Rfam assigns this 109-nucleotide RNA from Vibrio sp. 99-8-1 to the family "t44 RNA". NCBI's taxonomy places the organism under Bacteria, Pseudomonadati, Vibrionales, Vibrionaceae, Vibrio. Rfam classes the family as a small RNA. This family consists of a number of bacterial RNA genes of between 135 and 170 bases in length. The t44 gene has been identified in several species of enteric bacteria but homologs have also been identified in Pseudomonas and Coxiella species. The t44 gene is found between the map and rpsB genes in all species in the full alignment apart from Shigella flexneri. Pairs were carried over by alignment from the consensus structure, which was predicted with LocARNA.
RNA sequence: CACAUAUAUUUUUUAUCUCACACACGUACCGACACAUGUUCCGGGGUGCUUAAUCACUAUCUUAUUAUAGUGGGUAAAGUCGGAAUCAUGGGGUAUGUGGAGGCCUAAC
Numbered sequence: 001c002a003c004a005u006a007u008a009u010u011u012u013u014u015a016u017c018u019c020a021c022a023c024a025c026g027u028a029c030c031g032a033c034a035c036a037u038g039u040u041c042c043g044g045g046g047u048g049c050u051u052a053a054u055c056a057c058u059a060u061c062u063u064a065u066u067a068u069a070g071u072g073g074g075u076a077a078a079g080u081c082g083g084a085a086u087c088a089u090g091g092g093g094u095a096u097g098u099g100g101a102g103g104c105c106u107a108a109c
Base pairs, nucleotide, nucleotide: 023099024098025097026096027095028094029093030092035090036089037088038087040084041083042082043081048080049079050078051077